Record summary
Rfam assigns this 100-nucleotide RNA from Miscanthus lutarioriparius to the family "MIR528 microRNA precursor family". Its family is annotated with RISC complex and miRNA-mediated post-transcriptional gene silencing in the Gene Ontology.

RNA sequence: GUGGAAGGGGCAUGCAGAGGAGAGGAGCACGAGGCUUGGCUGGAAGCCGACCUGUGCUAUGCUACCCCUCGCUGGCUCUCCUGUGCCUGCCUCUUCCAUU
Numbered sequence: 001g002u003g004g005a006a007g008g009g010g011c012a013u014g015c016a017g018a019g020g021a022g023a024g025g026a027g028c029a030c031g032a033g034g035c036u037u038g039g040c041u042g043g044a045a046g047c048c049g050a051c052c053u054g055u056g057c058u059a060u061g062c063u064a065c066c067c068c069u070c071g072c073u074g075g076c077u078c079u080c081c082u083g084u085g086c087c088u089g090c091c092u093c094u095u096c097c098a099u100u
Stems, first nucleotide, its partner, number of pairs: 001099012014086003018082005024077002